About this RNA:
The family of this 147-nucleotide sequence from Prunus dulcis is "small nucleolar RNA snoR135". Rfam links the family to the GO terms nucleolus and RNA processing.
RNA sequence: UGAGCAGGGAUUGUGUGUAUCGGCGUAGUGCUAGAAUCAAUGCACUCUGAUCCGAAAGAGUUCCCUGCAAUAUCAAAUUCGGGGAAGGUGGGCAGUUGUUUUUCAUGUUUACCCAUUGAAAUUUUAACAAUCAUCUUCCCCAUAUCU
Numbered sequence: 001u002g003a004g005c006a007g008g009g010a011u012u013g014u015g016u017g018u019a020u021c022g023g024c025g026u027a028g029u030g031c032u033a034g035a036a037u038c039a040a041u042g043c044a045c046u047c048u049g050a051u052c053c054g055a056a057a058g059a060g061u062u063c064c065c066u067g068c069a070a071u072a073u074c075a076a077a078u079u080c081g082g083g084g085a086a087g088g089u090g091g092g093c094a095g096u097u098g099u100u101u102u103u104c105a106u107g108u109u110u111a112c113c114c115a116u117u118g119a120a121a122u123u124u125u126a127a128c129a130a131u132c133a134u135c136u137u138c139c140c141c142a143u144a145u146c147u
Base pairs, nucleotide, nucleotide: 004068005067006066007065008064009063010062015045016044017043018042019041020040081141082140083139084138085137086136087135088134089133090132091131095128096127097126098125

About this RNA:
The family's consensus secondary structure was predicted with RNAalifold. Taxonomically the source falls in Prunus (Eukaryota, Streptophyta, Gunneridae, Pentapetalae). The family has 6 seed sequences and 837 matches in Rfam 15.1.